[Rfam]
RNA: Plastid-psbM 3UTR RNA
Organism: Quercus lobata
RNA sequence: GAAUUAUCAGUAUGGUAGAAAGAUUCAUAUAUUUCUUUCUACCACACUUAUUAUAUUAUUGUAGUAUAUAAAGUUUUACUA
Numbered sequence: 001g002a003a004u005u006a007u008c009a010g011u012a013u014g015g016u017a018g019a020a021a022g023a024u025u026c027a028u029a030u031a032u033u034u035c036u037u038u039c040u041a042c043c044a045c046a047c048u049u050a051u052u053a054u055a056u057u058a059u060u061g062u063a064g065u066a067u068a069u070a071a072a073g074u075u076u077u078a079c080u081a
Base pairs, nucleotide, nucleotide: 006051007050009048010047011046013044014043015042016041017040018039019038020037021036022035023034